Notes:
SAH (S-adenosyl-L-homocysteine) riboswitch aptamer: a 135-nucleotide sequence from Pseudomonas sp. GV071. The source organism's lineage runs through Bacteria, Pseudomonadati, Pseudomonadota, Pseudomonadales and Pseudomonas. For this family Rfam cites "Riboswitches that sense S-adenosylhomocysteine and activate genes involved in coenzyme recycling" (Wang et al., Mol Cell, 2008).
RNA sequence: CUGUUCGAGGGGCGCUGCAGCAGGGUCUUCCACCAUGAAGUUUCCUGUCAGGCUCGAACAGGGCGUAUCGAACAACGGGUCGAAUCACCUCGGUGGUUCCCGGUUGUUAAAACGCAUCAACGGCGCCCAUUCGCA
Number, nucleotide and partner (000 for none) at each position: 001c000002u060003g059004u058005u057006c056007g055008a054009g000010g000011g000012g000013c000014g000015c000016u000017g000018c000019a000020g000021c047022a046023g045024g044025g043026u000027c000028u000029u000030c000031c000032a000033c000034c000035a000036u000037g000038a000039a000040g000041u000042u000043u025044c024045c023046u022047g021048u000049c000050a000051g000052g000053c000054u008055c007056g006057a005058a004059c003060a002061g000062g000063g000064c000065g000066u000067a000068u000069c000070g000071a000072a000073c000074a000075a000076c000077g000078g000079g000080u000081c000082g000083a000084a000085u000086c000087a000088c000089c000090u000091c000092g000093g000094u000095g000096g000097u000098u000099c000100c000101c000102g000103g000104u000105u000106g000107u000108u000109a000110a000111a000112a000113c000114g000115c000116a000117u000118c000119a000120a000121c000122g000123g000124c000125g000126c000127c000128c000129a000130u000131u000132c000133g000134c000135a000